[Rfam]
RNA sequence: AGGUAAUGCCUCCUGCACCUCUAUCACUGGAGACACUCGGUCAUGCUGUGGGUUAUGAGACCUUAGACGUUCAUCGUCGGGGGCAUGAUGUGAGGGCGGGUUGGAUGCCCC
Numbered sequence: 001a002g003g004u005a006a007u008g009c010c011u012c013c014u015g016c017a018c019c020u021c022u023a024u025c026a027c028u029g030g031a032g033a034c035a036c037u038c039g040g041u042c043a044u045g046c047u048g049u050g051g052g053u054u055a056u057g058a059g060a061c062c063u064u065a066g067a068c069g070u071u072c073a074u075c076g077u078c079g080g081g082g083g084c085a086u087g088a089u090g091u092g093a094g095g096g097c098g099g100g101u102u103g104g105a106u107g108c109c110c111c
Stems, first nucleotide, its partner, number of pairs: 001020004007035002010032004036094004040089008050063005066078004098110004
RNA: epsC RNA
Organism: Paenibacillus sp. D9